[Rfam]
A member of the RNA family "Small nucleolar RNA SNORD35" from Sciurus vulgaris, 88 nucleotides long. The match comes from Rfam's covariance-model search (79 bits). Rfam describes the family as follows. U35 is a C/D box snoRNA located in intron 6 of ribosomal protein L13A and intron 3 of ribosomal protein S11 in humans and at homologous positions in mouse and chicken ribosomal protein genes. Rfam links the family to the GO terms RNA processing and nucleolus. The base pairs follow the family's consensus structure, which was predicted with PFOLD. A reference for the family is Nicoloso et al. (1996), "Intron-encoded, antisense small nucleolar RNAs: the characterization of nine novel species points to their direct role as guides for the 2'-O-ribose methylation of rRNAs", J Mol Biol.
RNA sequence: GGCAGAUGAUGUCUGUUUUCACCAUGGUCUUCAGAUGCCCACCGUGGGUACUGUUGAGAAAGCUGGUUGGCAAAGCUGAUGUCAGAAG
Numbered sequence: 001g002g003c004a005g006a007u008g009a010u011g012u013c014u015g016u017u018u019u020c021a022c023c024a025u026g027g028u029c030u031u032c033a034g035a036u037g038c039c040c041a042c043c044g045u046g047g048g049u050a051c052u053g054u055u056g057a058g059a060a061a062g063c064u065g066g067u068u069g070g071c072a073a074a075g076c077u078g079a080u081g082u083c084a085g086a087a088g
Stems, first nucleotide, its partner, number of pairs: 001083004